[Rfam]
RNA sequence: CCCGCAUAUGGACGGAAAGACCCCGUGCACCUUUACUGCACCCUAACAUUGGGUUCGAGUAAAGCAUGUGUAGGAUAGGUGGGAGACUAUGAAGCGGCGCCGCUAGGCGUCGUGGAGUCGACGGUGAAAUACCACCCUUGCUUUAUUUGGAUUCUAACCUCGACCCUUGAAUCAGGGCCAGGGACAGUGUUAGGCGGGUAGUUUGACUGGGGCGGUCGCCUCCCAAAAAGUAACGGAGGCUCCCAAAGGUUCUCUCAGCAUGGUUGGUAAUCAUGCGUUGAGUGCAAAGGCAUAAGAGAGCUUAACUGCGAGACACACAGGUCGAGCAGAUGCGAAAGCAGGGCUUAGUGAUCCGGUGGUUCCGAGUGGAAGGGCCAUCGCUCAAAGGAUAAAAGGUACGCCGGGGAUAACAGGCUGAUCUUGCCCAAGAGUUCAUAUCGACGGCAAGGUUUGGCACCUCGAUGUCGGUUCAUCGCAUCCUGGGGCUGAAGAAGGUCCCAAGGGUUUGGCUGUUCGCCAAUUAAAGCGGUACGUGAACUGGGUUCAGAACGUCGUGAGACAGUUCGGUCCCUAUCCUAUGCGGGCGCA
Numbered sequence: 001c002c003c004g005c006a007u008a009u010g011g012a013c014g015g016a017a018a019g020a021c022c023c024c025g026u027g028c029a030c031c032u033u034u035a036c037u038g039c040a041c042c043c044u045a046a047c048a049u050u051g052g053g054u055u056c057g058a059g060u061a062a063a064g065c066a067u068g069u070g071u072a073g074g075a076u077a078g079g080u081g082g083g084a085g086a087c088u089a090u091g092a093a094g095c096g097g098c099g100c101c102g103c104u105a106g107g108c109g110u111c112g113u114g115g116a117g118u119c120g121a122c123g124g125u126g127a128a129a130u131a132c133c134a135c136c137c138u139u140g141c142u143u144u145a146u147u148u149g150g151a152u153u154c155u156a157a158c159c160u161c162g163a164c165c166c167u168u169g170a171a172u173c174a175g176g177g178c179c180a181g182g183g184a185c186a187g188u189g190u191u192a193g194g195c196g197g198g199u200a201g202u203u204u205g206a207c208u209g210g211g212g213c214g215g216u217c218g219c220c221u222c223c224c225a226a227a228a229a230g231u232a233a234c235g236g237a238g239g240c241u242c243c244c245a246a247a248g249g250u251u252c253u254c255u256c257a258g259c260a261u262g263g264u265u266g267g268u269a270a271u272c273a274u275g276c277g278u279u280g281a282g283u284g285c286a287a288a289g290g291c292a293u294a295a296g297a298g299a300g301c302u303u304a305a306c307u308g309c310g311a312g313a314c315a316c317a318c319a320g321g322u323c324g325a326g327c328a329g330a331u332g333c334g335a336a337a338g339c340a341g342g343g344c345u346u347a348g349u350g351a352u353c354c355g356g357u358g359g360u361u362c363c364g365a366g367u368g369g370a371a372g373g374g375c376c377a378u379c380g381c382u383c384a385a386a387g388g389a390u391a392a393a394a395g396g397u398a399c400g401c402c403g404g405g406g407a408u409a410a411c412a413g414g415c416u417g418a419u420c421u422u423g424c425c426c427a428a429g430a431g432u433u434c435a436u437a438u439c440g441a442c443g444g445c446a447a448g449g450u451u452u453g454g455c456a457c458c459u460c461g462a463u464g465u466c467g468g469u470u471c472a473u474c475g476c477a478u479c480c481u482g483g484g485g486c487u488g489a490a491g492a493a494g495g496u497c498c499c500a501a502g503g504g505u506u507u508g509g510c511u512g513u514u515c516g517c518c519a520a521u522u523a524a525a526g527c528g529g530u531a532c533g534u535g536a537a538c539u540g541g542g543u544u545c546a547g548a549a550c551g552u553c554g555u556g557a558g559a560c561a562g563u564u565c566g567g568u569c570c571c572u573a574u575c576c577u578a579u580g581c582g583g584g585c586g587c588a
Stems, first nucleotide, its partner, number of pairs: 001584008010576003014571002022405004027401002029397005035202004042194007051154016068137001078136005085119003094113008158182003162179001164177004205217004218240006241386001243343002249301006255281002258276006282291002306329004312323003331340003354380007362373002414455003418452001419449007429439002466541001467539004471533001472530005479504002482499006506520005547565004551560003
RNA: Bacterial large subunit ribosomal RNA, nucleotides 2152 to 2739
Organism: Melioribacter roseus